RNA sequence: UUCAUGGUAACAGGCGUUCUGAAAGAAGCCGGCGGCAAAGUUUCGGCCCUAGGAACACGAAUUGCAUCAGGCCAUAUACGGAGAUGAGCGUGCCAACCAGCGCAAAUCGUAACAGCUGCGGGAGACUGUAUAGGGUAAAUGCGACGGGAAGAUGGAGUGAAAGAUGUAUGAC
Numbered sequence: 001u002u003c004a005u006g007g008u009a010a011c012a013g014g015c016g017u018u019c020u021g022a023a024a025g026a027a028g029c030c031g032g033c034g035g036c037a038a039a040g041u042u043u044c045g046g047c048c049c050u051a052g053g054a055a056c057a058c059g060a061a062u063u064g065c066a067u068c069a070g071g072c073c074a075u076a077u078a079c080g081g082a083g084a085u086g087a088g089c090g091u092g093c094c095a096a097c098c099a100g101c102g103c104a105a106a107u108c109g110u111a112a113c114a115g116c117u118g119c120g121g122g123a124g125a126c127u128g129u130a131u132a133g134g135g136u137a138a139a140u141g142c143g144a145c146g147g148g149a150a151g152a153u154g155g156a157g158u159g160a161a162a163g164a165u166g167u168a169u170g171a172c
Base pairs, nucleotide, nucleotide: 001016003014005012006011028172030170031169036163040158041157042156043155044154045153047148048147049146062144063143064142065141066140071136072135073134075132076131077130078129079128080127081126083108084107085106088103089102090101091100
RNA: Group II catalytic intron D1-D4-3
Organism: Faecalibaculum rodentium